Rfam assigns this 86-nucleotide RNA from Polarella glacialis to the family "Selenocysteine transfer RNA". Its Rfam clan is "tRNA clan". A search with the family's covariance model found it, with a score of 48 bits. On this family, see Mizutani and Goto, FEBS Lett 2000: "Eukaryotic selenocysteine tRNA has the 9/4 secondary structure". NCBI's taxonomy places the organism under Eukaryota, Sar, Suessiales, Suessiaceae, Polarella.

[Rfam]
RNA sequence: GUCAGGGUGAGUCGGGCUGGUGCUCGGACAAGUCUUCAUCCCUUGGGGCGCGGGGACAUGCAGGAGCUCGAUUCUCCCUCCUUGAC
Numbered sequence: 001g002u003c004a005g006g007g008u009g010a011g012u013c014g015g016g017c018u019g020g021u022g023c024u025c026g027g028a029c030a031a032g033u034c035u036u037c038a039u040c041c042c043u044u045g046g047g048g049c050g051c052g053g054g055g056a057c058a059u060g061c062a063g064g065a066g067c068u069c070g071a072u073u074c075u076c077c078c079u080c081c082u083u084g085a086c
Base pairs, nucleotide, nucleotide: 001086002085003084004083005082006081007080009078012027013026014025015024016023017022029045030044031043032042048061049060050059052057063077064076065075066074